[Rfam]
RNA sequence: GCGGAUGGCUGGAUGGCCGCUGGGGCUUAGGCACCAGAGGAAAGUCCGGACUCCAGGAAGACACGGUGCCGGGUAACGCCCGGGCGGGGCAACCCGACGGAAAGCGCCACAGAAAACAGACCGCCGUUCCUCGGGACGGUAAGGGUGAAACGGUGGGGUAAGGGCCCACCGGGGGGCCGGCAACGGUCCCCGCACGGCAAGCCCCACCGGGAGCAAUGCCGAAUAGGGAUCCUGCGGCGCUCGUCGCCAGGCCGCUUUCGCCCAAGGAUCCGGGUAGGCAGCAUCAGCCCGUCGGCAACGCCGGGCGCAGAGGAAUGGCCAUCCAUCCGGCAGCGAUGCCGGGGGACAGAAUCCGGCUUACAGGCCAUCCGCGCAU
Numbered sequence: 001g002c003g004g005a006u007g008g009c010u011g012g013a014u015g016g017c018c019g020c021u022g023g024g025g026c027u028u029a030g031g032c033a034c035c036a037g038a039g040g041a042a043a044g045u046c047c048g049g050a051c052u053c054c055a056g057g058a059a060g061a062c063a064c065g066g067u068g069c070c071g072g073g074u075a076a077c078g079c080c081c082g083g084g085c086g087g088g089g090c091a092a093c094c095c096g097a098c099g100g101a102a103a104g105c106g107c108c109a110c111a112g113a114a115a116a117c118a119g120a121c122c123g124c125c126g127u128u129c130c131u132c133g134g135g136a137c138g139g140u141a142a143g144g145g146u147g148a149a150a151c152g153g154u155g156g157g158g159u160a161a162g163g164g165c166c167c168a169c170c171g172g173g174g175g176g177c178c179g180g181c182a183a184c185g186g187u188c189c190c191c192g193c194a195c196g197g198c199a200a201g202c203c204c205c206a207c208c209g210g211g212a213g214c215a216a217u218g219c220c221g222a223a224u225a226g227g228g229a230u231c232c233u234g235c236g237g238c239g240c241u242c243g244u245c246g247c248c249a250g251g252c253c254g255c256u257u258u259c260g261c262c263c264a265a266g267g268a269u270c271c272g273g274g275u276a277g278g279c280a281g282c283a284u285c286a287g288c289c290c291g292u293c294g295g296c297a298a299c300g301c302c303g304g305g306c307g308c309a310g311a312g313g314a315a316u317g318g319c320c321a322u323c324c325a326u327c328c329g330g331c332a333g334c335g336a337u338g339c340c341g342g343g344g345g346a347c348a349g350a351a352u353c354c355g356g357c358u359u360a361c362a363g364g365c366c367a368u369c370c371g372c373g374c375a376u
Base pairs, nucleotide, nucleotide: 001372002371003370004369005368006367007366008365009364010363011361012323013322014321015320016319017318018317020037021036022035023034025032026031042359043358044357046356047355048354049353050352051213052212053211054210059258060257061256064209065208066207067206068205069083070082071081072080073079084098085096086095087094088093099204100203104202105201106198107197108196121144122143123140124139125138126137127136128135129134152170153169154168155167156166157165171193172191173190174189175188176187177186178185179184217280218279219278220277227271228270229269230268231267232266250263251262253260287306288305289304290303291302293300294299